RNA sequence: UAUAUAUUUUGGCACACUAAUCGAAAGAUUAGCUCGCAAAGCCUCGGAAUCUAACAGUCUUUGACUCAUGAUCGUCCGGCUGCAAUU
Numbered sequence: 001u002a003u004a005u006a007u008u009u010u011g012g013c014a015c016a017c018u019a020a021u022c023g024a025a026a027g028a029u030u031a032g033c034u035c036g037c038a039a040a041g042c043c044u045c046g047g048a049a050u051c052u053a054a055c056a057g058u059c060u061u062u063g064a065c066u067c068a069u070g071a072u073c074g075u076c077c078g079g080c081u082g083c084a085a086u087u
Stems, first nucleotide, its partner, number of pairs: 012037002017032006040081004046077003049072003056066004
The record is an 87-nucleotide RNA sequence from Paenibacillus anaericanus, which matches "c-di-GMP-I riboswitch aptamer" in Rfam. Its family is annotated with cyclic-di-GMP binding in the Gene Ontology. Pairs were carried over by alignment from the consensus structure, which is taken from published work. The organism belongs to Paenibacillus, within Bacteria.